Background:
This 120-nucleotide RNA sequence from Exiguobacterium chiriqhucha belongs to the Rfam family "SAM riboswitch aptamer (S box leader)". NCBI's taxonomy places the organism under Bacteria, Bacillati, Bacilli, Exiguobacterium, Exiguobacterium chiriqhucha.
RNA sequence: CUCUUAUUCUGAGCGGUGGAGGGAACAAGGCCCUACGAAGCCCAGCAACCGUCCGAUUUUUCAUUGUUAUUCGGAAAAGGUGCUAUCCUGAAGCGAAGCGUAAGCUUCGAACGAUAAGAG
Numbered sequence: 001c002u003c004u005u006a007u008u009c010u011g012a013g014c015g016g017u018g019g020a021g022g023g024a025a026c027a028a029g030g031c032c033c034u035a036c037g038a039a040g041c042c043c044a045g046c047a048a049c050c051g052u053c054c055g056a057u058u059u060u061u062c063a064u065u066g067u068u069a070u071u072c073g074g075a076a077a078a079g080g081u082g083c084u085a086u087c088c089u090g091a092a093g094c095g096a097a098g099c100g101u102a103a104g105c106u107u108c109g110a111a112c113g114a115u116a117a118g119a120g
Stems, first nucleotide, its partner, number of pairs: 001120008013043001015042003021033003030089001044084004049080002052075005094109006
A search with the family's covariance model found it, with a score of 67 bits.